CRISPR RNA direct repeat element: a 37-nucleotide sequence from Nitrosomonas sp. Nm84. Rfam 15.1 lists 1,410 matches to the family in 44 species. Lineage of the source: Bacteria > Pseudomonadati > Nitrosomonadales > Nitrosomonadaceae > Nitrosomonas. Gene Ontology term of the family: defense response. A search with the family's covariance model found it, with a score of 46 bits.

[Rfam]
RNA sequence: GUAGCGCCCGGCCCUAAAGCCGGACGAGGAUUGAAAC
Numbered sequence: 001g002u003a004g005c006g007c008c009c010g011g012c013c014c015u016a017a018a019g020c021c022g023g024a025c026g027a028g029g030a031u032u033g034a035a036a037c
Stems, first nucleotide, its partner, number of pairs: 005026002008023005